Shown here is a 97-nucleotide sequence from Hibiscus trionum, a member of the family "MIR403 microRNA precursor family".
The family's consensus secondary structure was predicted with WAR.
[Rfam]
RNA sequence: ACAUAUUUCAGGUUUGCGCGUGAAUCUAAUAAAACUGUAAGCCACAAAGGUGGCUCUGGUUUCAUGUUAGAUUCACGCACAAACUCGUAAUCUGUCU
Numbered sequence: 001a002c003a004u005a006u007u008u009c010a011g012g013u014u015u016g017c018g019c020g021u022g023a024a025u026c027u028a029a030u031a032a033a034a035c036u037g038u039a040a041g042c043c044a045c046a047a048a049g050g051u052g053g054c055u056c057u058g059g060u061u062u063c064a065u066g067u068u069a070g071a072u073u074c075a076c077g078c079a080c081a082a083a084c085u086c087g088u089a090a091u092c093u094g095u096c097u
Base pairs, nucleotide, nucleotide: 001095002094003093005091006090007089011085012084013083014082015081016080018078019077020076021075022074023073024072025071026070028068029067030066
The organism belongs to Hibiscus, within Eukaryota.
A search with the family's covariance model found it, with a score of 73 bits.